Shown here is a 106-nucleotide RNA from Prunus avium, a member of the family "MIR6274 microRNA precursor family".
Gene Ontology terms of the family: RISC complex and miRNA-mediated post-transcriptional gene silencing.

[Rfam]
RNA sequence: GGAUAACGCUAUUUUGCUAUCCCCAGCUAAUAACACAAUGACGUGUGGAAAAGUUAUUCCAUGUGUCAUUAUAUUAUUAGUUGGGGAUAGCAAAAAAGUGAUAUCC
Number, nucleotide and partner (000 for none) at each position: 001g000002g105003a104004u103005a102006a000007c000008g000009c000010u000011a000012u095013u094014u093015u092016g091017c090018u089019a088020u087021c000022c085023c084024c083025a082026g081027c080028u079029a078030a077031u076032a075033a074034c000035a072036c000037a070038a069039u068040g067041a066042c065043g064044u063045g062046u061047g060048g059049a058050a057051a000052a000053g000054u000055u000056a000057u050058u049059c048060c047061a046062u045063g044064u043065g042066u041067c040068a039069u038070u037071a000072u035073a000074u033075u032076a031077u030078u029079a028080g027081u026082u025083g024084g023085g022086g000087a020088u019089a018090g017091c016092a015093a014094a013095a012096a000097a000098g000099u000100g000101a000102u005103a004104u003105c002106c000
The family has 2 seed sequences and 342 matches in Rfam 15.1. NCBI's taxonomy places the organism under Eukaryota, Streptophyta, rosids, Rosales, Prunus.